[Rfam]
RNA sequence: GGCGAUAAACGGUAAGUGAAAUAAGUGUUGUGGACCCGGGGGCAGUGCCCGGCGUCUCCACCAUAAACAACCCCUUGCAAAAGGGGUCUGUGGGGACGAAACAGGCUCGACACGCAUGGUAAAGACUUACCUUUUGCCCGGCAUUGUACCACCGUCAUCGGGCUAAACCUACAAGUGCCAAUGAUAACUCUGAGGUGCUCGCUGUCGCUGCAUAA
Numbered sequence: 001g002g003c004g005a006u007a008a009a010c011g012g013u014a015a016g017u018g019a020a021a022u023a024a025g026u027g028u029u030g031u032g033g034a035c036c037c038g039g040g041g042g043c044a045g046u047g048c049c050c051g052g053c054g055u056c057u058c059c060a061c062c063a064u065a066a067a068c069a070a071c072c073c074c075u076u077g078c079a080a081a082a083g084g085g086g087u088c089u090g091u092g093g094g095g096a097c098g099a100a101a102c103a104g105g106c107u108c109g110a111c112a113c114g115c116a117u118g119g120u121a122a123a124g125a126c127u128u129a130c131c132u133u134u135u136g137c138c139c140g141g142c143a144u145u146g147u148a149c150c151a152c153c154g155u156c157a158u159c160g161g162g163c164u165a166a167a168c169c170u171a172c173a174a175g176u177g178c179c180a181a182u183g184a185u186a187a188c189u190c191u192g193a194g195g196u197g198c199u200c201g202c203u204g205u206c207g208c209u210g211c212a213u214a215a
Stems, first nucleotide, its partner, number of pairs: 001138005014128004026116003030113003036052005053098009139154003
Rfam assigns this 215-nucleotide RNA sequence from Gluconobacter morbifer to the family "permuted transfer-messenger RNA". On this family, see Felden et al., RNA 1997: "Probing the structure of the Escherichia coli 10Sa RNA (tmRNA)". Rfam describes the family as follows. Bacterial tmRNA, also known as 10Sa RNA or SsrA, is named for its dual tRNA and mRNA-like properties. A search with the family's covariance model found it, with a score of 147 bits. NCBI's taxonomy places the organism under Bacteria, Alphaproteobacteria, Acetobacterales, Acetobacteraceae, Gluconobacter morbifer.